[Rfam]
RNA sequence: UGUUAAGCACUUACUAUGUACCCAGCACUGUUCUAAGUGCUGGGUACAUAGUAAGUGCUUAACA
Numbered sequence: 001u002g003u004u005a006a007g008c009a010c011u012u013a014c015u016a017u018g019u020a021c022c023c024a025g026c027a028c029u030g031u032u033c034u035a036a037g038u039g040c041u042g043g044g045u046a047c048a049u050a051g052u053a054a055g056u057g058c059u060u061a062a063c064a
Base pairs, nucleotide, nucleotide: 001064002063003062004061005060006059007058008057009056010055011054012053013052014051015050016049017048018047019046020045021044022043023042024041025040026039027038028037029036